This 124-nucleotide RNA sequence from Bacteriovorax sp. Seq25_V belongs to the Rfam family "TPP riboswitch aptamer (THI element)". It scores 76 bits against the family's covariance model. NCBI's taxonomy places the organism under Bacteria, Bdellovibrionota, Bacteriovoracia, Bacteriovoracaceae, Bacteriovorax. The base pairs follow the family's consensus structure, which is taken from published work.
RNA sequence: UUAAUCCUAAAGGGGUGCUCAUCGUAAAUGAGCUGAGACUUUGUUUGCCUAAUUAGGCCUUGAUGAAGGACCCUUUGAACCUGAUUCGGUUAGCACCGACGUAGGAAUUAGGAAAGACAUUCAU
Numbered sequence: 001u002u003a004a005u006c007c008u009a010a011a012g013g014g015g016u017g018c019u020c021a022u023c024g025u026a027a028a029u030g031a032g033c034u035g036a037g038a039c040u041u042u043g044u045u046u047g048c049c050u051a052a053u054u055a056g057g058c059c060u061u062g063a064u065g066a067a068g069g070a071c072c073c074u075u076u077g078a079a080c081c082u083g084a085u086u087c088g089g090u091u092a093g094c095a096c097c098g099a100c101g102u103a104g105g106a107a108u109u110a111g112g113a114a115a116g117a118c119a120u121u122c123a124u
Stems, first nucleotide, its partner, number of pairs: 006112005011074004016068001017033005040067005080105004086099004